[Rfam]
RNA: SAM riboswitch aptamer (S box leader)
RNA sequence: UACUUAUCAAGAGAGGUGGAGGGAAUGGCCCAAAGAAACCCAGCAACCAGUACAGUGUGUACCAAGGUGCUAAAUCCUGCAGGAAACUGCAAGAUAAGUU
Dot-bracket structure: .(((((((....(.(((...(((...[[)))......))))((((.((.(((.......)))...))))))...(]]..(((....)))..)))))))).